The family of this 364-nucleotide sequence from Filibacter tadaridae is "Group I catalytic intron". The family has 12 seed sequences and 5,602 matches in Rfam 15.1. NCBI's taxonomy places the organism under Bacteria, Bacillati, Bacillota, Caryophanales, Filibacter. Rfam links the family to the GO term Group I intron splicing. The literature on the family includes a 1990 paper in Annu Rev Biochem by Cech, "Self-splicing of group I introns". Group I catalytic introns are large self-splicing ribozymes. They catalyse their own excision from mRNA, tRNA and rRNA precursors in a wide range of organisms. The core secondary structure consists of 9 paired regions (P1-P9). These fold to essentially two domains - the P4-P6 domain (formed from the stacking of P5, P4, P6 and P6a helices) and the P3-P9 domain (formed from the P8, P3, P7 and P9 helices). The secondary structure mark-up for this family represents only this conserved core. Group I catalytic introns often have long ORFs inserted in loop regions. The window size for this search is chosen to minimise search time and catch the small examples. A larger window size will find more matches. The match comes from Rfam's covariance-model search (93 bits).
RNA sequence: UGACGUUGAUUAUGCUUUAGCUGCGUAAGCAGUGACAAGCACAGUCGUCCUAGCUGGUAACGGCUAGAGAGUAUGAUCGGGUGAAUUGCUGGAAACCCCUUAGAGCUUUUCUUGCCACAACGUAGUUGGAAACAACAAGCGUAACGGUUCGAAAAAAGAAAAGAUUGGGCAAUCAGCAGCGAAGCUCCUGUCUCGAAAGAGUGGAGAACGUUCAACGACUAGGAUAGACCAUCUACGGCUUCGGCCAUGAUGAUGAAAUCCAUAGGUGAAACAAUGUUCAUCAGCAUUGCGAAUCCGAAGCGCCCGACCCCUACUAGGAAACUAGAGGGUGAAGAUAUAGUCUAGUCAUUUAUGAAAGUAAAUG
Numbered sequence: 001u002g003a004c005g006u007u008g009a010u011u012a013u014g015c016u017u018u019a020g021c022u023g024c025g026u027a028a029g030c031a032g033u034g035a036c037a038a039g040c041a042c043a044g045u046c047g048u049c050c051u052a053g054c055u056g057g058u059a060a061c062g063g064c065u066a067g068a069g070a071g072u073a074u075g076a077u078c079g080g081g082u083g084a085a086u087u088g089c090u091g092g093a094a095a096c097c098c099c100u101u102a103g104a105g106c107u108u109u110u111c112u113u114g115c116c117a118c119a120a121c122g123u124a125g126u127u128g129g130a131a132a133c134a135a136c137a138a139g140c141g142u143a144a145c146g147g148u149u150c151g152a153a154a155a156a157a158g159a160a161a162a163g164a165u166u167g168g169g170c171a172a173u174c175a176g177c178a179g180c181g182a183a184g185c186u187c188c189u190g191u192c193u194c195g196a197a198a199g200a201g202u203g204g205a206g207a208a209c210g211u212u213c214a215a216c217g218a219c220u221a222g223g224a225u226a227g228a229c230c231a232u233c234u235a236c237g238g239c240u241u242c243g244g245c246c247a248u249g250a251u252g253a254u255g256a257a258a259u260c261c262a263u264a265g266g267u268g269a270a271a272c273a274a275u276g277u278u279c280a281u282c283a284g285c286a287u288u289g290c291g292a293a294u295c296c297g298a299a300g301c302g303c304c305c306g307a308c309c310c311c312u313a314c315u316a317g318g319a320a321a322c323u324a325g326a327g328g329g330u331g332a333a334g335a336u337a338u339a340g341u342c343u344a345g346u347c348a349u350u351u352a353u354g355a356a357a358g359u360a361a362a363u364g
Stems, first nucleotide, its partner, number of pairs: 001027001003026004008021001077307004082302002087178006097169003179211002186204002192199002215343001217342005310329003314325004349362005